[Rfam]
Annotation:
This 138-nucleotide RNA sequence from Nyctereutes procyonoides belongs to the Rfam family "small Cajal body-specific RNA 17". Pairs were carried over by alignment from the consensus structure, which is taken from published work. Rfam links the family to the GO terms nucleolus, Cajal body and RNA processing. The organism belongs to Nyctereutes, within Eukaryota. A reference for the family is Tycowski et al. (2004), "Guide RNAs with 5' Caps and Novel Box C/D snoRNA-like Domains for Modification of snRNAs in Metazoa", Curr Biol. scaRNAs are a specific class of small nuclear RNAs which localise to the Cajal bodies and guide the modification of RNA polymerase II transcribed spliceosomal RNAs U1, U2, U4, U5 and U12. The complete human U12-22/U4-8 scaRNA is composed of two tandem C/D box domains (termed U12-22 and U4-8).
Nucleotides: 138
Stems, first nucleotide, its partner, number of pairs: 002137002005135001008132006020125005056091003060087002063084002068078004
Number, partner (000 for none) and nucleotide at each position: 001000u002137c003136c004000c005135c006000a007000a008132g009131u010130c011129c012128c013127c014000a015000a016000u017000g018000u019000a020125g021124c022123c023122c024121u025000c026000u027000u028000g029000u030000g031000a032000g033000c034000u035000c036000g037000c038000g039000g040000u041000a042000u043000u044000u045000u046000c047000c048000u049000u050000a051000a052000a053000u054000g055000a056091u057090c058089g059000a060087g061086c062000u063084c064083c065000g066000c067000u068078u069077g070076g071075c072000a073000c074000a075071g076070c077069u078068g079000a080000c081000u082000c083064g084063g085000a086061g087060c088000c089058u090057g091056a092000g093000a094000g095000g096000a097000u098000u099000a100000u101000g102000a103000a104000a105000a106000c107000g108000u109000g110000u111000g112000g113000g114000g115000u116000a117000a118000g119000g120000u121024g122023g123022g124021g125020c126000u127013g128012g129011g130010g131009a132008c133000c134000g135005g136003g137002g138000u